Description:
This 440-nucleotide RNA sequence from Parahoeflea phototrophica belongs to the Rfam family "Bacterial RNase P class A".
[Rfam]
RNA sequence: CCAGUCGGCCGGGCAGCCGCACUUUGCAACGUCGAAAGACAGCAGGGUGAGGAAAGUCCGGGCUCCACGGAUAAGCGGUGCCGGAUAACGUCCGGCGGGGGCGACCCCAGGGAAAGUGCCACAGAAAGCAAACCGCCCCGCCACCUGAUCGCCGGAUCCGAUUCCAGGAUCGAGCGGCAAUGAGGCGGCGGGGUAAGGGUGAAAGGGUGGGGUAAGAGCCCACCGCGCGACCGGCAACGGAAGCGGCACGGUAAACCCCACCGGGAGCAAAACCGAAUAGGGAUGACGCAGGGCGAAAGCCCGGCCCUUUUUCCGGGGUUGAUCAUCCGGGUAGGUUGCUUGAGGUGCGCAGCAAUGCGUGUCCCAGAGGAAUGGCUGCCACGUUUUGGCCCGCAAGGGUCAAGGCCAUACAGAACCCGGCUUACAGGCCGGCUGGCAAU
Numbered sequence: 001c002c003a004g005u006c007g008g009c010c011g012g013g014c015a016g017c018c019g020c021a022c023u024u025u026g027c028a029a030c031g032u033c034g035a036a037a038g039a040c041a042g043c044a045g046g047g048u049g050a051g052g053a054a055a056g057u058c059c060g061g062g063c064u065c066c067a068c069g070g071a072u073a074a075g076c077g078g079u080g081c082c083g084g085a086u087a088a089c090g091u092c093c094g095g096c097g098g099g100g101g102c103g104a105c106c107c108c109a110g111g112g113a114a115a116g117u118g119c120c121a122c123a124g125a126a127a128g129c130a131a132a133c134c135g136c137c138c139c140g141c142c143a144c145c146u147g148a149u150c151g152c153c154g155g156a157u158c159c160g161a162u163u164c165c166a167g168g169a170u171c172g173a174g175c176g177g178c179a180a181u182g183a184g185g186c187g188g189c190g191g192g193g194u195a196a197g198g199g200u201g202a203a204a205g206g207g208u209g210g211g212g213u214a215a216g217a218g219c220c221c222a223c224c225g226c227g228c229g230a231c232c233g234g235c236a237a238c239g240g241a242a243g244c245g246g247c248a249c250g251g252u253a254a255a256c257c258c259c260a261c262c263g264g265g266a267g268c269a270a271a272a273c274c275g276a277a278u279a280g281g282g283a284u285g286a287c288g289c290a291g292g293g294c295g296a297a298a299g300c301c302c303g304g305c306c307c308u309u310u311u312u313c314c315g316g317g318g319u320u321g322a323u324c325a326u327c328c329g330g331g332u333a334g335g336u337u338g339c340u341u342g343a344g345g346u347g348c349g350c351a352g353c354a355a356u357g358c359g360u361g362u363c364c365c366a367g368a369g370g371a372a373u374g375g376c377u378g379c380c381a382c383g384u385u386u387u388g389g390c391c392c393g394c395a396a397g398g399g400u401c402a403a404g405g406c407c408a409u410a411c412a413g414a415a416c417c418c419g420g421c422u423u424a425c426a427g428g429c430c431g432g433c434u435g436g437c438a439a440u
Stems, first nucleotide, its partner, number of pairs: 001436010011425001012380007020049008054423003058420005063267004070313002073310001076263005081095005096110001097108004111258002116256002118252003133198002135194008206224006225247001226245003231240003271337004281328006304319005344363008
The family's consensus secondary structure is taken from published work. By type it is a ribozyme.